[Rfam]
RNA: T-box leader
RNA sequence: UUAACCAUUCAGAAAAGUAAUCAUACAAACUUUUUAGAGAGUCUGUGGUAGCUGAAAACAGAUAAGUGGCAAUGAUGAAAAUUGGGCUGAAUGCUAUUUAGAAUUUGAAAUUAUAAAAAUUCGGUAAGCACACCUUACAGUGCAUCUCGUUAUUGCGAGACUGAGCGAUAGGGAAAUUCCCUAUAAUUGAGGUGGUACCGCGCAUCGACGUCCUCACA
Numbered sequence: 001u002u003a004a005c006c007a008u009u010c011a012g013a014a015a016a017g018u019a020a021u022c023a024u025a026c027a028a029a030c031u032u033u034u035u036a037g038a039g040a041g042u043c044u045g046u047g048g049u050a051g052c053u054g055a056a057a058a059c060a061g062a063u064a065a066g067u068g069g070c071a072a073u074g075a076u077g078a079a080a081a082u083u084g085g086g087c088u089g090a091a092u093g094c095u096a097u098u099u100a101g102a103a104u105u106u107g108a109a110a111u112u113a114u115a116a117a118a119a120u121u122c123g124g125u126a127a128g129c130a131c132a133c134c135u136u137a138c139a140g141u142g143c144a145u146c147u148c149g150u151u152a153u154u155g156c157g158a159g160a161c162u163g164a165g166c167g168a169u170a171g172g173g174a175a176a177u178u179c180c181c182u183a184u185a186a187u188u189g190a191g192g193u194g195g196u197a198c199c200g201c202g203c204a205u206c207g208a209c210g211u212c213c214u215c216a217c218a
Base pairs, nucleotide, nucleotide: 007092008091009090010089011088012087020076021075022074023073024072030066031065032064041063042062043061044060045059046058096120097117098116099115100114123134124133125132168184169183170182171181172180173179174178189215190214191213192212200211201210202209